Background:
Rfam assigns this 118-nucleotide RNA sequence to the family "DUF3268 RNA". The sequence is in the family's curated seed alignment.
RNA sequence: GGCAGAGGCUUGCGCUCAGGCUUUCGAUACGGCGGACGGUACCCCGGCGUCAUCACGUGCCCUGCGGGCAUGGAAUCGUUACGGAUUCGCGCACUGAGCGGUCCACACGGCGCAAGCA
Numbered sequence: 001g002g003c004a005g006a007g008g009c010u011u012g013c014g015c016u017c018a019g020g021c022u023u024u025c026g027a028u029a030c031g032g033c034g035g036a037c038g039g040u041a042c043c044c045c046g047g048c049g050u051c052a053u054c055a056c057g058u059g060c061c062c063u064g065c066g067g068g069c070a071u072g073g074a075a076u077c078g079u080u081a082c083g084g085a086u087u088c089g090c091g092c093a094c095u096g097a098g099c100g101g102u103c104c105a106c107a108c109g110g111c112g113c114a115a116g117c118a
Base pairs, nucleotide, nucleotide: 008117009116010115011114012113013112014111015110016109025078026077027076028075029050030049031048033046034045035044056072057071058070059069060068061067062066083104084103085102087101088100089099090098

By type it is a small RNA.